[Rfam]
RNA sequence: CCCUCGCUCAAAGAAUCGCAACGAAGCACACAUACAGAGUAUUCUUCGGGGUAGCUCACACCAUGCUUCGGGAGAAAGUCCCCGGACAUCGGAUCUCUUGAUUUGCACUUUCAGCAACGAACCGCCACAGAAGCGCGGCCUUCCCGUACUACGACGCCUCUCUGCUCCACUCCCGCCUGCACUCUUCUCGUUACUGCGUCUUGAGGCCGUGGGUCGAAGGCCCGGCACAUGGACGAUGAUACGAGUCCGUCGGCGUCCCGAGGCCUGCACGUCGACAGCGCAGGAAGCUAAGAGGAGGGAUGGCGUGUAUUCGAGCGCGUUGGUGGGCAUGAGGGUUUUUCGUCCAGUUUAUGGUCAUGCGAUUGCCUGUCCCACCGCUCCAGCCAUAUGGGGAGGCUUGGGCGGGUAACUCAAUGGGGCUUAUUCUUGACGCGAGG
Number, nucleotide and partner (000 for none) at each position: 001c000002c437003c436004u435005c434006g433007c432008u430009c429010a428011a427012a000013g000014a364015a363016u362017c361018g360019c359020a000021a000022c070023g069024a068025a067026g066027c065028a064029c000030a000031c000032a000033u000034a000035c000036a000037g057038a056039g055040u054041a000042u000043u051044c050045u049046u000047c000048g000049g045050g044051g043052u000053a000054g040055c039056u038057c037058a000059c000060a000061c000062c000063a000064u028065g027066c026067u025068u024069c023070g022071g000072g000073a000074g000075a000076a422077a421078g420079u000080c419081c418082c417083c416084g000085g000086a000087c000088a000089u000090c000091g000092g000093a000094u000095c000096u000097c000098u000099u000100g000101a000102u000103u000104u000105g000106c000107a000108c000109u000110u000111u000112c000113a000114g000115c000116a000117a000118c000119g000120a000121a000122c000123c000124g000125c000126c000127a000128c000129a000130g000131a000132a000133g000134c000135g000136c000137g000138g000139c000140c000141u000142u000143c000144c000145c000146g000147u000148a000149c000150u000151a000152c000153g000154a000155c000156g000157c000158c000159u000160c000161u000162c000163u000164g000165c000166u000167c000168c000169a000170c000171u000172c000173c000174c000175g000176c000177c000178u000179g000180c000181a000182c000183u000184c000185u000186u000187c000188u000189c000190g000191u000192u000193a000194c000195u000196g000197c000198g000199u000200c000201u000202u000203g000204a000205g000206g000207c000208c000209g000210u000211g000212g000213g000214u000215c000216g000217a000218a000219g000220g000221c000222c000223c000224g000225g000226c000227a000228c000229a000230u000231g000232g000233a000234c000235g000236a000237u000238g000239a000240u000241a000242c000243g000244a000245g000246u000247c000248c000249g000250u000251c000252g000253g000254c000255g000256u000257c000258c000259c000260g000261a000262g336263g000264c334265c000266u000267g000268c331269a330270c000271g328272u327273c325274g324275a000276c322277a000278g000279c000280g000281c000282a000283g000284g000285a000286a000287g316288c315289u000290a000291a000292g000293a000294g000295g000296a000297g000298g000299g000300a000301u000302g000303g000304c000305g000306u000307g000308u000309a000310u000311u000312c000313g000314a000315g288316c287317g000318c000319g000320u000321u000322g276323g000324u274325g273326g000327g272328c271329a000330u269331g268332a000333g000334g264335g000336u262337u000338u000339u000340u000341c000342g000343u000344c000345c000346a000347g000348u000349u000350u000351a000352u000353g000354g000355u000356c000357a000358u000359g019360c018361g017362a016363u015364u014365g000366c406367c405368u404369g403370u402371c401372c000373c000374a000375c000376c000377g000378c000379u000380c000381c000382a000383g000384c000385c000386a000387u000388a000389u000390g000391g000392g000393g000394a000395g000396g000397c000398u000399u000400g000401g371402g370403c369404g368405g367406g366407u000408a000409a000410c000411u000412c000413a000414a000415u000416g083417g082418g081419g080420c078421u077422u076423a000424u000425u000426c000427u011428u010429g009430a008431c000432g007433c006434g005435a004436g003437g002
RNA: RNase MRP